[Rfam]
RNA sequence: GUCGUGCUGCGGCUCACGUCGAAGGCGACAUAUCCCAGCGACCUUAAUUCUCUCUAAGGGAGCUGUCCCUGUCCGGGAUCGUGGUCUCGGGCAAACGGCGCCCACCUGGUGUAUCCAGGUCGAGGGGAUGAAACAGUCCUUCACGGUUCUCGCGGCGCCGCC
Numbered sequence: 001g002u003c004g005u006g007c008u009g010c011g012g013c014u015c016a017c018g019u020c021g022a023a024g025g026c027g028a029c030a031u032a033u034c035c036c037a038g039c040g041a042c043c044u045u046a047a048u049u050c051u052c053u054c055u056a057a058g059g060g061a062g063c064u065g066u067c068c069c070u071g072u073c074c075g076g077g078a079u080c081g082u083g084g085u086c087u088c089g090g091g092c093a094a095a096c097g098g099c100g101c102c103c104a105c106c107u108g109g110u111g112u113a114u115c116c117a118g119g120u121c122g123a124g125g126g127g128a129u130g131a132a133a134c135a136g137u138c139c140u141u142c143a144c145g146g147u148u149c150u151c152g153c154g155g156c157g158c159c160g161c162c
Base pairs, nucleotide, nucleotide: 002160004158005157006156007155008154009153010152011151012149015146017145018144019143033128034127035126036125039122040121041120042119043118058103059102060101062099063098064097065096066095071092072091073090074089075088076087077086